[Rfam]
RNA sequence: AGCCAGGAGCCAUGCGAGCGGCCGCCGCCUAACUCCGCCAGGUUCGGAAGGAAGCAACGGUAAGCGGUUGACCGCUGCGCCGUGGAUUUCCUGGCUGCG
Numbered sequence: 001a002g003c004c005a006g007g008a009g010c011c012a013u014g015c016g017a018g019c020g021g022c023c024g025c026c027g028c029c030u031a032a033c034u035c036c037g038c039c040a041g042g043u044u045c046g047g048a049a050g051g052a053a054g055c056a057a058c059g060g061u062a063a064g065c066g067g068u069u070g071a072c073c074g075c076u077g078c079g080c081c082g083u084g085g086a087u088u089u090c091c092u093g094g095c096u097g098c099g
Base pairs, nucleotide, nucleotide: 004093005092006091007090008089010085011084012083013082014081015077017076018075019074020073021072024068025067026066027065028064030062035060036059037058043052044051045050
Record summary: Shown here is a 99-nucleotide sequence from Leadbettera azotonutricia, a member of the family "Bacterial small signal recognition particle RNA". By type it is a non-coding RNA gene. Pairs were carried over by alignment from the consensus structure, which is taken from published work. A reference for the family is Rosenblad et al. (2003), "SRPDB: Signal Recognition Particle Database", Nucleic Acids Res. It scores 66 bits against the family's covariance model. Its family is annotated with signal recognition particle, plasma membrane targeting and SRP-dependent cotranslational protein targeting to membrane, signal sequence recognition in the Gene Ontology. Lineage of the source: Bacteria > Pseudomonadati > Spirochaetota > Leadbettera > Leadbettera azotonutricia.